[Rfam]
RNA: DUF3800-XI RNA
RNA sequence: CGGGCUGGUCGUAUGACCAUGGUCCACCGAAACGGCGUGGGGACCCCGC
Numbered sequence: 001c002g003g004g005c006u007g008g009u010c011g012u013a014u015g016a017c018c019a020u021g022g023u024c025c026a027c028c029g030a031a032a033c034g035g036c037g038u039g040g041g042g043a044c045c046c047c048g049c
Stems, first nucleotide, its partner, number of pairs: 002025005007018004